[Rfam]
RNA sequence: CAGAUAUCAGGGGCAGUGCCCCCUACAGUUG
Numbered sequence: 001c002a003g004a005u006a007u008c009a010g011g012g013g014c015a016g017u018g019c020c021c022c023c024u025a026c027a028g029u030u031g
Stems, first nucleotide, its partner, number of pairs: 001031003005027001007025001009024005014018001
A member of the RNA family "Iron response element II" from Podarcis lilfordi, 31 nucleotides long. Rfam's curators write: IRE, TFRC, SLC40A1, SDHB, SLC11A2, CDC42BPA, ACO2, ALAS2_H.SAPIENS, CDC14A, EPAS1, ALAS2, qoxD, Hao1, NDUFS1, transferrin, Aconitate. Gene Ontology term of the family: response to iron ion. Rfam 15.1 lists 5,197 matches to the family in 722 species. The family's RNA type in Rfam is cis-regulatory element.